[Rfam]
RNA sequence: AUAAUUCAAGGUGAUGGGGUUCCACCGCACAACCGCCCAGUUUUUCGGCAACGAGCCAAAGACGAAGCUGAUGACUCCUACGAUUUG
Dot-bracket structure: .........[[[[..((((((.]]]]........((..............................))....)))))).........

The record is an 87-nucleotide RNA from Granulicella rosea, which matches "Fluoride riboswitch aptamer (crcB RNA motif)" in Rfam. Rfam links the family to the GO terms response to fluoride and positive regulation of gene expression.